[Rfam]
RNA sequence: UGGCAGAGACGACUCUGCCAGCUUCAUAUUGCUCCAGGGGACGGCCCCG
Numbered sequence: 001u002g003g004c005a006g007a008g009a010c011g012a013c014u015c016u017g018c019c020a021g022c023u024u025c026a027u028a029u030u031g032c033u034c035c036a037g038g039g040g041a042c043g044g045c046c047c048c049g
Stems, first nucleotide, its partner, number of pairs: 001020008037048004